[Rfam]
RNA sequence: ACUGCUAAGCCAUCUCUCCAGCUCCCUUAAAACAUUUUUUAAAAUAUUUUAUUAGGGCUGGAGAGAUGGCUUAGAGGU
Numbered sequence: 001a002c003u004g005c006u007a008a009g010c011c012a013u014c015u016c017u018c019c020a021g022c023u024c025c026c027u028u029a030a031a032a033c034a035u036u037u038u039u040u041a042a043a044a045u046a047u048u049u050u051a052u053u054a055g056g057g058c059u060g061g062a063g064a065g066a067u068g069g070c071u072u073a074g075a076g077g078u
Stems, first nucleotide, its partner, number of pairs: 002077002005074020
RNA: mir-3473 microRNA precursor family
Organism: Jaculus jaculus